[Rfam]
RNA sequence: GUGAGAACCAUUUAAAUCAAGUAAUGUAGUGAUUUAAAUGGUUCUCAC
Numbered sequence: 001g002u003g004a005g006a007a008c009c010a011u012u013u014a015a016a017u018c019a020a021g022u023a024a025u026g027u028a029g030u031g032a033u034u035u036a037a038a039u040g041g042u043u044c045u046c047a048c
Base pairs, nucleotide, nucleotide: 001048002047003046004045005044006043007042008041009040010039011038012037013036014035015034016033017032018031019030
Rfam assigns this 48-nucleotide RNA sequence from Microtea debilis to the family "Plastid-ccsA-ndhD-1 3UTR RNA". Taxonomically the source falls in Microtea (Eukaryota, Tracheophyta, Magnoliopsida, eudicotyledons). Rfam classes the family as a cis-regulatory element. Rfam describes the family as follows. Plastid-ccsA-ndhD-1 is a non-coding RNA (ncRNA) recognised in plastids. It was found in the three prime untranslated region (3UTR) of ccsA and ndhD genes, its 3UTR location suggests a role in transcript maturation.